RNA sequence: AGAACGGGCCUUUCAGGCAUCCUCUCCUAAAACUUUUCGGGCUGGCCUUCGGGUCGGCCCUUUUUUUGUUCCGCA
Numbered sequence: 001a002g003a004a005c006g007g008g009c010c011u012u013u014c015a016g017g018c019a020u021c022c023u024c025u026c027c028u029a030a031a032a033c034u035u036u037u038c039g040g041g042c043u044g045g046c047c048u049u050c051g052g053g054u055c056g057g058c059c060c061u062u063u064u065u066u067u068g069u070u071c072c073g074c075a
Stems, first nucleotide, its partner, number of pairs: 008018004039060009
Rfam assigns this 75-nucleotide RNA from Sphingobium amiense to the family "Makes More Granules Regulator RNA (mmgR)".
The literature on the family includes a 2005 paper in Genome Biol by Corbino et al., "Evidence for a second class of S-adenosylmethionine riboswitches and other regulatory RNA motifs in alpha-proteobacteria".
NCBI's taxonomy places the organism under Bacteria, Pseudomonadati, Pseudomonadota, Sphingobiaceae, Sphingobium.
The match comes from Rfam's covariance-model search (53 bits).